[Rfam]
Rfam assigns this 149-nucleotide RNA sequence from Nonomuraea sp. C10 to the family "c-di-AMP riboswitch aptamer (ydaO/yuaA leader)".

RNA sequence: ACGGCGCGGCCGCCGAAUCCGCCCUCUGGCGGAACCGGGGACCCACCUUUCUCUGGGGUGAAUCGGUCGCUCUUCACCAAGGGCGCGCCGUAGGGCACUUCCACGCCCGAACCCGACAGCUAACCCGGUAGGCGGCAUGGAAGCAAGGA
Numbered sequence: 001a002c003g004g005c006g007c008g009g010c011c012g013c014c015g016a017a018u019c020c021g022c023c024c025u026c027u028g029g030c031g032g033a034a035c036c037g038g039g040g041a042c043c044c045a046c047c048u049u050u051c052u053c054u055g056g057g058g059u060g061a062a063u064c065g066g067u068c069g070c071u072c073u074u075c076a077c078c079a080a081g082g083g084c085g086c087g088c089c090g091u092a093g094g095g096c097a098c099u100u101c102c103a104c105g106c107c108c109g110a111a112c113c114c115g116a117c118a119g120c121u122a123a124c125c126c127g128g129u130a131g132g133c134g135g136c137a138u139g140g141a142a143g144c145a146a147g148g149a
Stems, first nucleotide, its partner, number of pairs: 011134004018033005034129006044055002056114003064090004093108004
Rfam describes the family as follows. This family represents a conserved RNA structure found upstream of the ydaO and yuaA genes in Bacillus subtilis and related genes in other bacteria. The organism belongs to Nonomuraea, within Bacteria. A search with the family's covariance model found it, with a score of 85 bits.